A member of the RNA family "msiK RNA" from Speluncibacter jeojiensis, 59 nucleotides long. Lineage of the source: Bacteria > Actinomycetes > Mycobacteriales > Speluncibacteraceae > Speluncibacter.
[Rfam]
RNA sequence: UGCGUCAGCCCUGUACUACGGAUCGUCCGGCACGUUCCUGCCGGUGAAGGGACCUGCCA
Dot-bracket structure: ........((((.((...........((((((......)))))))).))))........
About this RNA:
A search with the family's covariance model found it, with a score of 54 bits. The family's RNA type in Rfam is cis-regulatory element.